Description
Rfam assigns this 135-nucleotide RNA from Catagonus wagneri to the family "Small nucleolar RNA SNORA13". Rfam classes the family as an H/ACA-box small nucleolar RNA. The family is grouped with related families in Rfam's "SNORA13 clan". ACA13 is a member of the H/ACA class of snoRNA that guide the sites of modification of uridines to pseudouridines.
RNA sequence: AGCCUUUGUGUUGCCCAUUCGCUUUUGGAAACUAGUGAAUGUGGUGUCAAAAAAGGCGUAAAUCAAACGCUUUUGCAGCUUUUCCUGCCUUUGAAUUUUGAUAUCUUCGGCGUAGGAGCUGCUUAAGUAACAGUA
Dot-bracket structure: .((((((.((.((((((((((((..........)))))))).)))).))..))))))...........((((..(((((...((((((((..((.........))...)).)))))))))))..)))).......